The family of this 449-nucleotide RNA sequence from Hyphomicrobium facile is "Bacterial RNase P class A".
The family's consensus secondary structure is taken from published work.

RNA sequence: CCAGCCGGCUGGACGGCCGCUGUCGGACUUCGUUGUGGCGAAGCGGGCUCUAAAGGCUCGCGAGCAAACACUUCCGGCAGAGGAAAGUCCGGGCUCCAUGAGGAACACGGUGGCGGCUAACGGCCGCCGGGGGCGACCCCAGGGAAAGUGCCACAGAAAACAUACCGCCAAGCCGGACCGCCUUCGGGCCAAGUCCGUCGGUAAGGGUGAAAAGGUGCGGUAAGAGCGCACCGCGCUUCUGGUAACAGCAGCGGCAGGGCAAACCCCACCGGGAGCAAGAUCAAAUAGGGGUGGGCGCGCGGAGCGGGAAACCGCAGACGCAAGGCGCGUUCUUCACGCUACCCACCCGGGUUGAUUGCACGAGGCGCUUGGCGACAGGCGUCCCAGAUGAAUGGCCGUCGCGGAGGGCAACCUCCAGACAGAACCCGGCUUACAGGCCGGCUGGUAUU
Dot-bracket structure: ((((((((((((((((((.((((((((.............................................))))))))....[[[.[[[[[((((.....[[[..((((((((((.....)))))(((((....)))).)((...(((((............(((((..(.((((................)))).))))..)).......((((((.......))))))(((((.(((....))).)))).)..)))..)))))))))))))...((((......((((((................................((((..]]]))))...)))))).....))))......((((((((....))))))))..........)))))))........................]]]]]]]].).))))))))))....
Numbered sequence: 001c002c003a004g005c006c007g008g009c010u011g012g013a014c015g016g017c018c019g020c021u022g023u024c025g026g027a028c029u030u031c032g033u034u035g036u037g038g039c040g041a042a043g044c045g046g047g048c049u050c051u052a053a054a055g056g057c058u059c060g061c062g063a064g065c066a067a068a069c070a071c072u073u074c075c076g077g078c079a080g081a082g083g084a085a086a087g088u089c090c091g092g093g094c095u096c097c098a099u100g101a102g103g104a105a106c107a108c109g110g111u112g113g114c115g116g117c118u119a120a121c122g123g124c125c126g127c128c129g130g131g132g133g134c135g136a137c138c139c140c141a142g143g144g145a146a147a148g149u150g151c152c153a154c155a156g157a158a159a160a161c162a163u164a165c166c167g168c169c170a171a172g173c174c175g176g177a178c179c180g181c182c183u184u185c186g187g188g189c190c191a192a193g194u195c196c197g198u199c200g201g202u203a204a205g206g207g208u209g210a211a212a213a214g215g216u217g218c219g220g221u222a223a224g225a226g227c228g229c230a231c232c233g234c235g236c237u238u239c240u241g242g243u244a245a246c247a248g249c250a251g252c253g254g255c256a257g258g259g260c261a262a263a264c265c266c267c268a269c270c271g272g273g274a275g276c277a278a279g280a281u282c283a284a285a286u287a288g289g290g291g292u293g294g295g296c297g298c299g300c301g302g303a304g305c306g307g308g309a310a311a312c313c314g315c316a317g318a319c320g321c322a323a324g325g326c327g328c329g330u331u332c333u334u335c336a337c338g339c340u341a342c343c344c345a346c347c348c349g350g351g352u353u354g355a356u357u358g359c360a361c362g363a364g365g366c367g368c369u370u371g372g373c374g375a376c377a378g379g380c381g382u383c384c385c386a387g388a389u390g391a392a393u394g395g396c397c398g399u400c401g402c403g404g405a406g407g408g409c410a411a412c413c414u415c416c417a418g419a420c421a422g423a424a425c426c427c428g429g430c431u432u433a434c435a436g437g438c439c440g441g442c443u444g445g446u447a448u449u
Stems, first nucleotide, its partner, number of pairs: 001445010011434001012400007020080008085432003089429005094275004103335003108271005113127005128142001129140004143266002148264002150260003165206002167202003172199001174197004214232006233255001234253004239248003279357004289348006327339004364383008